RNA sequence: UGUUAGCACCUCUUCACAACGGAUCGUUCGGCACGUACCUGCCGAUGGAGGACAAUAAAUA
Numbered sequence: 001u002g003u004u005a006g007c008a009c010c011u012c013u014u015c016a017c018a019a020c021g022g023a024u025c026g027u028u029c030g031g032c033a034c035g036u037a038c039c040u041g042c043c044g045a046u047g048g049a050g051g052a053c054a055a056u057a058a059a060u061a
Base pairs, nucleotide, nucleotide: 011051012050013049014048015047016046028045029044030043031042032041033040
The family of this 61-nucleotide sequence from Actinomyces sp. S4-C9 is "msiK RNA". The family's consensus secondary structure is taken from published work. Rfam classes the family as a cis-regulatory element.